[Rfam]
RNA sequence: GAGACUAUUAAACCUGUGCUUGACUUAACAAACUCUAUCAUACAACGGGUGGAAUGAAUAACAUGUCUUGUGCUUCACCCAUGGGACCACCAUGCGCCCUAGGGCUAUUUUGUUGUUGUUCUUCGUGCUUCUGCCUAUGCUGCCCGC
Numbered sequence: 001g002a003g004a005c006u007a008u009u010a011a012a013c014c015u016g017u018g019c020u021u022g023a024c025u026u027a028a029c030a031a032a033c034u035c036u037a038u039c040a041u042a043c044a045a046c047g048g049g050u051g052g053a054a055u056g057a058a059u060a061a062c063a064u065g066u067c068u069u070g071u072g073c074u075u076c077a078c079c080c081a082u083g084g085g086a087c088c089a090c091c092a093u094g095c096g097c098c099c100u101a102g103g104g105c106u107a108u109u110u111u112g113u114u115g116u117u118g119u120u121c122u123u124c125g126u127g128c129u130u131c132u133g134c135c136u137a138u139g140c141u142g143c144c145c146g147c
Base pairs, nucleotide, nucleotide: 003029007025008023010021011020013018046146047145048144049143050142051141052140054138055137056136060129062127063126064125065124072119073118076112077111081108082107083106084105
RNA: Hepatitis E virus cis-reactive element
Organism: Paslahepevirus balayani